[Rfam]
RNA sequence: CCGCUGUCUCAUUCCCCUUGGCGCGCGCUGACAGUCUAGGGGAAAUGAGAGACAGCGAAUGGGAGAGGAGGGAAAUCAACGCGCAGAGAAUCCCUCCCUGCGCAUUGAUUUCCCUCGUCUCCCG
Numbered sequence: 001c002c003g004c005u006g007u008c009u010c011a012u013u014c015c016c017c018u019u020g021g022c023g024c025g026c027g028c029u030g031a032c033a034g035u036c037u038a039g040g041g042g043a044a045a046u047g048a049g050a051g052a053c054a055g056c057g058a059a060u061g062g063g064a065g066a067g068g069a070g071g072g073a074a075a076u077c078a079a080c081g082c083g084c085a086g087a088g089a090a091u092c093c094c095u096c097c098c099u100g101c102g103c104a105u106u107g108a109u110u111u112c113c114c115u116c117g118u119c120u121c122c123c124g
Stems, first nucleotide, its partner, number of pairs: 003056004008049004013043006020036003060124003065119002068116004081103006088096002
Dot-bracket structure: ..((((.((((.((((((.(((...........))).))))))..))))...))))...(((..((.((((.........((((((.((.....)).)))))).........)))).))..)))

The family of this 124-nucleotide RNA sequence from Salvator merianae is "Small nucleolar RNA SNORA14". The match comes from Rfam's covariance-model search (38 bits). ACA14 is a member of the H/ACA class of snoRNA that guide the sites of modification of uridines to pseudouridines. The organism belongs to Salvator, within Eukaryota. The family's RNA type in Rfam is H/ACA-box small nucleolar RNA. The family's consensus secondary structure was predicted with RNAfold. Rfam links the family to the GO terms nucleolus and RNA processing. The family has 18 seed sequences and 848 matches in Rfam 15.1.